[Rfam]
This 74-nucleotide RNA from Microvirga thermotolerans belongs to the Rfam family "Makes More Granules Regulator RNA (mmgR)". It is annotated as a small RNA. Its family is annotated with protein binding, DNA-templated transcription, termination and response to nitrogen compound in the Gene Ontology. The pairing is the family consensus, mapped onto this sequence.

RNA sequence: CAUCGCAGCCCUUCUUGGGCGUUUCCUCCCUAAACUUCGGGCCGCUGGCAACAGCGGCCUUUUUUCUUUCGGGC
Numbered sequence: 001c002a003u004c005g006c007a008g009c010c011c012u013u014c015u016u017g018g019g020c021g022u023u024u025c026c027u028c029c030c031u032a033a034a035c036u037u038c039g040g041g042c043c044g045c046u047g048g049c050a051a052c053a054g055c056g057g058c059c060u061u062u063u064u065u066c067u068u069u070c071g072g073g074c
Base pairs, nucleotide, nucleotide: 008020009019010018011017040059041058042057043056044055045054046053047052